[Rfam]
RNA sequence: GUCUUUAUGGCUUAGUGGUUAAAGCAUCUCACUGUUAAUGAGAAUACAUAGGUUCAAUUCCUAUUGAAGACG
Numbered sequence: 001g002u003c004u005u006u007a008u009g010g011c012u013u014a015g016u017g018g019u020u021a022a023a024g025c026a027u028c029u030c031a032c033u034g035u036u037a038a039u040g041a042g043a044a045u046a047c048a049u050a051g052g053u054u055c056a057a058u059u060c061c062u063a064u065u066g067a068a069g070a071c072g
Stems, first nucleotide, its partner, number of pairs: 001071007010025004027043005048064005

Description:
A member of the RNA family "tRNA" from Nakaseomyces glabratus, 72 nucleotides long. Taxonomically the source falls in Nakaseomyces (Eukaryota, Opisthokonta, Saccharomycetes, Saccharomycetaceae).